Shown here is a 243-nucleotide RNA, a member of the family "permuted transfer-messenger RNA". Rfam links the family to the GO term RNA catabolic process. The family's consensus secondary structure is taken from published work. It is annotated as a non-coding RNA gene. About the family: Bacterial tmRNA, also known as 10Sa RNA or SsrA, is named for its dual tRNA and mRNA-like properties. The match comes from Rfam's covariance-model search (134 bits).
[Rfam]
RNA sequence: GAUGCUAAACGAGGUGGCGGAAUAAGCGUUGUGGACCCGGGGGCAGUGCCCGGCGGCUCCACCAAAAUACACGGCCUUACUUGUGUAUUCUGGCGGGGCCGAAACAGGAUCGACACGCGUAGUAAAGGCCAUUGAGGUAUCCGGCAUGGUAUCCGCCGUUAUCGGGCUAAAUUGAUAGUUGCCAACGAUAACUAUCCUGUGGCAGCGAACGACAACUUCGGUGGUCUUCGCGCUGUUGCCUAA
Numbered sequence: 001g002a003u004g005c006u007a008a009a010c011g012a013g014g015u016g017g018c019g020g021a022a023u024a025a026g027c028g029u030u031g032u033g034g035a036c037c038c039g040g041g042g043g044c045a046g047u048g049c050c051c052g053g054c055g056g057c058u059c060c061a062c063c064a065a066a067a068u069a070c071a072c073g074g075c076c077u078u079a080c081u082u083g084u085g086u087a088u089u090c091u092g093g094c095g096g097g098g099c100c101g102a103a104a105c106a107g108g109a110u111c112g113a114c115a116c117g118c119g120u121a122g123u124a125a126a127g128g129c130c131a132u133u134g135a136g137g138u139a140u141c142c143g144g145c146a147u148g149g150u151a152u153c154c155g156c157c158g159u160u161a162u163c164g165g166g167c168u169a170a171a172u173u174g175a176u177a178g179u180u181g182c183c184a185a186c187g188a189u190a191a192c193u194a195u196c197c198u199g200u201g202g203c204a205g206c207g208a209a210c211g212a213c214a215a216c217u218u219c220g221g222u223g224g225u226c227u228u229c230g231c232g233c234u235g236u237u238g239c240c241u242a243a
Stems, first nucleotide, its partner, number of pairs: 001141005015131004027119003031116003037053005054101007142158004